This 104-nucleotide RNA from Serratia odorifera belongs to the Rfam family "t44 RNA". By type it is a small RNA.

RNA sequence: CUCACAUUGUGUAAAUAACACACACGUAUCGGCACAUCCGCCGGGGUGCCUCGGGUGACAUCGUCAUGCUGGGGUCGGCGUUAUGGGAUACGUGGAGGCAUAAC
Numbered sequence: 001c002u003c004a005c006a007u008u009g010u011g012u013a014a015a016u017a018a019c020a021c022a023c024a025c026g027u028a029u030c031g032g033c034a035c036a037u038c039c040g041c042c043g044g045g046g047u048g049c050c051u052c053g054g055g056u057g058a059c060a061u062c063g064u065c066a067u068g069c070u071g072g073g074g075u076c077g078g079c080g081u082u083a084u085g086g087g088a089u090a091c092g093u094g095g096a097g098g099c100a101u102a103a104c
Stems, first nucleotide, its partner, number of pairs: 023094008035085003040079004048075007
The organism belongs to Serratia odorifera, within Bacteria.